[Rfam]
RNA sequence: ACGCUGGGUAGCUCAGGGGAUACUUCAACUGCGUCACCGGUUAACUAACCUGCUGGUCCACGGGCCAAAGGUUCAAACCCCGGGUGCAGUCCAGCGUUUUA
Numbered sequence: 001a002c003g004c005u006g007g008g009u010a011g012c013u014c015a016g017g018g019g020a021u022a023c024u025u026c027a028a029c030u031g032c033g034u035c036a037c038c039g040g041u042u043a044a045c046u047a048a049c050c051u052g053c054u055g056g057u058c059c060a061c062g063g064g065c066c067a068a069a070g071g072u073u074c075a076a077a078c079c080c081c082g083g084g085u086g087c088a089g090u091c092c093a094g095c096g097u098u099u100u101a
Base pairs, nucleotide, nucleotide: 002096003095004094005093006092007091011085012084013083014082016081017080018079019078024077025076028073